[Rfam]
RNA sequence: UGGUAGAUGCACCCUGAUUCGACCCCUCUGGAGUUCUUUGGAAUUCCGGGGGUUUUUUUU
Numbered sequence: 001u002g003g004u005a006g007a008u009g010c011a012c013c014c015u016g017a018u019u020c021g022a023c024c025c026c027u028c029u030g031g032a033g034u035u036c037u038u039u040g041g042a043a044u045u046c047c048g049g050g051g052g053u054u055u056u057u058u059u060u
Stems, first nucleotide, its partner, number of pairs: 002013003025052011
The family of this 60-nucleotide RNA from Halomicronema hongdechloris is "Nitrogen stress-induced RNA 1". The literature on the family includes a 2010 paper in J Mol Biol by Ionescu et al., "Heterocyst-specific transcription of NsiR1, a non-coding RNA encoded in a tandem array of direct repeats in cyanobacteria". The source organism's lineage runs through Bacteria, Bacillati, Cyanobacteriota, Nodosilineaceae and Halomicronema hongdechloris.